Rfam assigns this 335-nucleotide sequence from Fusobacterium polymorphum to the family "Bacterial RNase P class A". Rfam classes the family as a ribozyme. The organism belongs to Fusobacterium polymorphum, within Bacteria. Pairs were carried over by alignment from the consensus structure, which is taken from published work.

RNA sequence: UUGGGUAUUCAGGUUAGUCGCUGUCUUUAUGAUAGAGGAAAGUCCGAGCUCCACAGAGCAAAAGGGUAGCUAACGGCUACUAAAAGUAAUUUUAAGGAAAGUGCCACAGAAAAUAGACCGCCAUUAAGGUAAGGGUGAAAAGGUGGUGUAAGAGACCACCAGUUUUUUAGGAAACUAAAAAAGCUUGGUAAACCCCCUUUGGAGCAAGACUAAAUAGGAAAGAUUAAGGGGUUGCUCGCUCUCUUUCAGGGUAAGUCGCUAGAGAUUAUAAGUGAUUAUAAUUCGAGAAAAAUGAUUAACAAAUACAAAACUCGGCUUAUUGAAUGCCUAAAAAU
Numbered sequence: 001u002u003g004g005g006u007a008u009u010c011a012g013g014u015u016a017g018u019c020g021c022u023g024u025c026u027u028u029a030u031g032a033u034a035g036a037g038g039a040a041a042g043u044c045c046g047a048g049c050u051c052c053a054c055a056g057a058g059c060a061a062a063a064g065g066g067u068a069g070c071u072a073a074c075g076g077c078u079a080c081u082a083a084a085a086g087u088a089a090u091u092u093u094a095a096g097g098a099a100a101g102u103g104c105c106a107c108a109g110a111a112a113a114u115a116g117a118c119c120g121c122c123a124u125u126a127a128g129g130u131a132a133g134g135g136u137g138a139a140a141a142g143g144u145g146g147u148g149u150a151a152g153a154g155a156c157c158a159c160c161a162g163u164u165u166u167u168u169a170g171g172a173a174a175c176u177a178a179a180a181a182a183g184c185u186u187g188g189u190a191a192a193c194c195c196c197c198u199u200u201g202g203a204g205c206a207a208g209a210c211u212a213a214a215u216a217g218g219a220a221a222g223a224u225u226a227a228g229g230g231g232u233u234g235c236u237c238g239c240u241c242u243c244u245u246u247c248a249g250g251g252u253a254a255g256u257c258g259c260u261a262g263a264g265a266u267u268a269u270a271a272g273u274g275a276u277u278a279u280a281a282u283u284c285g286a287g288a289a290a291a292a293u294g295a296u297u298a299a300c301a302a303a304u305a306c307a308a309a310a311c312u313c314g315g316c317u318u319a320u321u322g323a324a325u326g327c328c329u330a331a332a333a334a335u
Stems, first nucleotide, its partner, number of pairs: 001331010011320001013300007021035005040318003044315005049204004056237004061200005066080005081095001082093004096195002101193002103189003118134002120130003142160006162184001163182008208257004218247005228242005264283008